Rfam assigns this 112-nucleotide RNA from Clostridium novyi to the family "PyrR binding site".
The family's consensus secondary structure is taken from published work.
RNA sequence: AUAAUCUUUAAUACGGUCCAGAGAGGCUGACAAGAUUGAUAGUUUAGCUAUGUUUGUAUUUAUAUUUAAGAUAACUCAAACUUCUUGUCAGUAGGCAAGAGGUUUUUUUAUU
Dot-bracket structure: ..((((((.....(((((......)))))..))))))..((.(((((.((((........)))).))))).))....((((((((((((....)))))))))))).......
Numbered sequence: 001a002u003a004a005u006c007u008u009u010a011a012u013a014c015g016g017u018c019c020a021g022a023g024a025g026g027c028u029g030a031c032a033a034g035a036u037u038g039a040u041a042g043u044u045u046a047g048c049u050a051u052g053u054u055u056g057u058a059u060u061u062a063u064a065u066u067u068a069a070g071a072u073a074a075c076u077c078a079a080a081c082u083u084c085u086u087g088u089c090a091g092u093a094g095g096c097a098a099g100a101g102g103u104u105u106u107u108u109u110a111u112u
Stems, first nucleotide, its partner, number of pairs: 003037006014029005040073002043070005049064004078105012

About the family: This family represents the PyrR binding site and terminator structure. The source organism's lineage runs through Bacteria, Bacillota, Clostridia, Clostridium and Clostridium novyi.